[Rfam]
RNA: Mammalian CPEB3 ribozyme
RNA sequence: AAUGAACGGCCUAAUGGCCAUAGCAGAAACACUUACUUUGUGGCCCUGUCAGAGUCUAAUGAAUCUGUGAAUUCUGUU
Numbered sequence: 001a002a003u004g005a006a007c008g009g010c011c012u013a014a015u016g017g018c019c020a021u022a023g024c025a026g027a028a029a030c031a032c033u034u035a036c037u038u039u040g041u042g043g044c045c046c047u048g049u050c051a052g053a054g055u056c057u058a059a060u061g062a063a064u065c066u067g068u069g070a071a072u073u074c075u076g077u078u
Stems, first nucleotide, its partner, number of pairs: 016045004022078007029041003050067004055062002